[Rfam]
RNA sequence: UAAUAACGACCGAGAGGAUGAUGGGUGGCCGAUGGAUAACUAACCUAUUUUUUAUCAUUUGAAAUUGCAUAUUUCAAAUCAUAUAACAUAGGAUUAGUCUGCCCAUUUUCUUUUAACUGUAAAGCUAUUAACAAUAGCUUAUUAGAGUAUGCAAAACGCGGCUAAUCCUUCCAAAAUAUUGGGAGGAUUUUUUU
Numbered sequence: 001u002a003a004u005a006a007c008g009a010c011c012g013a014g015a016g017g018a019u020g021a022u023g024g025g026u027g028g029c030c031g032a033u034g035g036a037u038a039a040c041u042a043a044c045c046u047a048u049u050u051u052u053u054a055u056c057a058u059u060u061g062a063a064a065u066u067g068c069a070u071a072u073u074u075c076a077a078a079u080c081a082u083a084u085a086a087c088a089u090a091g092g093a094u095u096a097g098u099c100u101g102c103c104c105a106u107u108u109u110c111u112u113u114u115a116a117c118u119g120u121a122a123a124g125c126u127a128u129u130a131a132c133a134a135u136a137g138c139u140u141a142u143u144a145g146a147g148u149a150u151g152c153a154a155a156a157c158g159c160g161g162c163u164a165a166u167c168c169u170u171c172c173a174a175a176a177u178a179u180u181g182g183g184a185g186g187a188u189u190u191u192u193u194u
Stems, first nucleotide, its partner, number of pairs: 015111004022105004028099001030097001041096003045092002047089002050086002057079009117145003124138006164189011
Shown here is a 194-nucleotide RNA sequence from Bacillus sp. MUM 13, a member of the family "Bacillus sRNA ncr1575".
A reference for the family is Irnov et al. (2010), "Identification of regulatory RNAs in Bacillus subtilis", Nucleic Acids Res.
It is annotated as a small RNA.
The base pairs follow the family's consensus structure, which is taken from published work.